This 130-nucleotide RNA from Oryza sativa belongs to the Rfam family "Small nucleolar RNA snoR74". The family's RNA type in Rfam is H/ACA-box small nucleolar RNA. Taxonomically the source falls in Oryza sativa (Eukaryota, Tracheophyta, Magnoliopsida, Oryzeae).
RNA sequence: AAAAAAGCAGGAUGCUGUUCUCUCUAUAAGCAGUAUCUUCGUAACCUUUAGGAACAUCAUGUUCAUCGUUAUUGGGUGAACCGGUGGACACAGCUCAAUGUUGACUGGUUCAGUAAAUGAUGGCACAUUU
Numbered sequence: 001a002a003a004a005a006a007g008c009a010g011g012a013u014g015c016u017g018u019u020c021u022c023u024c025u026a027u028a029a030g031c032a033g034u035a036u037c038u039u040c041g042u043a044a045c046c047u048u049u050a051g052g053a054a055c056a057u058c059a060u061g062u063u064c065a066u067c068g069u070u071a072u073u074g075g076g077u078g079a080a081c082c083g084g085u086g087g088a089c090a091c092a093g094c095u096c097a098a099u100g101u102u103g104a105c106u107g108g109u110u111c112a113g114u115a116a117a118u119g120a121u122g123g124c125a126c127a128u129u130u
Base pairs, nucleotide, nucleotide: 005048006047007046011037012036014034015033016032017031063123064122065121066120067119068118069117070116077112078111079110080109081108082107083106

The base pairs follow the family's consensus structure, which was predicted with WAR. On this family, see Marker et al., Curr Biol 2002: "Experimental RNomics: identification of 140 candidates for small non-messenger RNAs in the plant Arabidopsis thaliana".